[Rfam]
Description: This 127-nucleotide sequence from Pipistrellus kuhlii belongs to the Rfam family "Small nucleolar RNA SNORA25". About the family: ACA25 is a member of the H/ACA class of snoRNA that guide the sites of modification of uridines to pseudouridines. The family's consensus secondary structure was predicted with RNAfold. Its family is annotated with RNA processing and nucleolus in the Gene Ontology.

RNA sequence: AGAUCAUUUCAAAGAGAGGUUGUAGGAUCAAAACCAGUAGCUCUUAAUGCUGUGACCUAAAAUAGAAGUUCUCUGUAGGCUGUAACAGACACUCAAUAGGGCUAGGUUUUCCUGUGGAGAUAUAAGG
Numbered sequence: 001a002g003a004u005c006a007u008u009u010c011a012a013a014g015a016g017a018g019g020u021u022g023u024a025g026g027a028u029c030a031a032a033a034c035c036a037g038u039a040g041c042u043c044u045u046a047a048u049g050c051u052g053u054g055a056c057c058u059a060a061a062a063u064a065g066a067a068g069u070u071c072u073c074u075g076u077a078g079g080c081u082g083u084a085a086c087a088g089a090c091a092c093u094c095a096a097u098a099g100g101g102c103u104a105g106g107u108u109u110u111c112c113u114g115u116g117g118a119g120a121u122a123u124a125a126g127g
Base pairs, nucleotide, nucleotide: 002057004055005054006053007052014045015044016043017042018041020039023037026035070120071119072118073117074116077113078112079111087103088102090101092099093098

The match comes from Rfam's covariance-model search (95 bits).